This 156-nucleotide RNA from Synechococcus sp. JA-3-3Ab belongs to the Rfam family "Ribosomal protein L10 leader". Lineage of the source: Bacteria > Bacillati > Synechococcales > Synechococcaceae > Synechococcus. The base pairs follow the family's consensus structure, which was predicted with CMfinder. The literature on the family includes a 1994 paper in Prog Nucleic Acid Res Mol Biol by Zengel and Lindahl, "Diverse mechanisms for regulating ribosomal protein synthesis in Escherichia coli". The sequence is in the family's curated seed alignment.

RNA sequence: CCACAGUCGAAUAGCGAGCCGAAGACAGCAGGGGCCAAGGGGCUUAAUGUCCUGCCGAGGUUUGAGCGGAGUGCUAAGGGAUCCCGUUGUGGACUGCUAGGUUACGCUUGUCUCAAUGCGUCUCGGCUAUGGCUGAGGCGCAUUCUCUUUGGCGGC
Numbered sequence: 001c002c003a004c005a006g007u008c009g010a011a012u013a014g015c016g017a018g019c020c021g022a023a024g025a026c027a028g029c030a031g032g033g034g035c036c037a038a039g040g041g042g043c044u045u046a047a048u049g050u051c052c053u054g055c056c057g058a059g060g061u062u063u064g065a066g067c068g069g070a071g072u073g074c075u076a077a078g079g080g081a082u083c084c085c086g087u088u089g090u091g092g093a094c095u096g097c098u099a100g101g102u103u104a105c106g107c108u109u110g111u112c113u114c115a116a117u118g119c120g121u122c123u124c125g126g127c128u129a130u131g132g133c134u135g136a137g138g139c140g141c142a143u144u145c146u147c148u149u150u151g152g153c154g155g156c
Stems, first nucleotide, its partner, number of pairs: 028055006034043003118141010
Rfam describes the family as follows. This family is a putative r-protein leader autoregulatory structure found in B. subtilis and other low-GC Gram-positive bacteria. It is located in the 5' untranslated regions of mRNAs encoding ribosomal proteins L10 and L12 (rplJ-rplL).